[Rfam]
RNA: Small nucleolar RNA SNORD70
RNA sequence: CCAACUGUUGUCAAUGAUGCAUUCUUCAUGAAACUGAAUCUCUGUGAUUGCAUGUUAAGUUUUCGUCACUACCACUGAGACAACAGAUGG
Numbered sequence: 001c002c003a004a005c006u007g008u009u010g011u012c013a014a015u016g017a018u019g020c021a022u023u024c025u026u027c028a029u030g031a032a033a034c035u036g037a038a039u040c041u042c043u044g045u046g047a048u049u050g051c052a053u054g055u056u057a058a059g060u061u062u063u064c065g066u067c068a069c070u071a072c073c074a075c076u077g078a079g080a081c082a083a084c085a086g087a088u089g090g
Stems, first nucleotide, its partner, number of pairs: 001090003005086008